[Rfam]
RNA: TPP riboswitch aptamer (THI element)
Organism: Streptomyces carminius
RNA sequence: GGAACGACUCGCGGGAGCCCGGCGCACCGGGCUGAGAGGGAGGCUUGUGCGGCCUCCGACCGUACGAACCUGAUCCGGGUCAUGCCGGCGAAGGGAGGGGCGCGCCCAUGCGC
Numbered sequence: 001g002g003a004a005c006g007a008c009u010c011g012c013g014g015g016a017g018c019c020c021g022g023c024g025c026a027c028c029g030g031g032c033u034g035a036g037a038g039g040g041a042g043g044c045u046u047g048u049g050c051g052g053c054c055u056c057c058g059a060c061c062g063u064a065c066g067a068a069c070c071u072g073a074u075c076c077g078g079g080u081c082a083u084g085c086c087g088g089c090g091a092a093g094g095g096a097g098g099g100g101c102g103c104g105c106c107c108a109u110g111c112g113c
Stems, first nucleotide, its partner, number of pairs: 006101001008099003011063004017032005039057007069094003075088004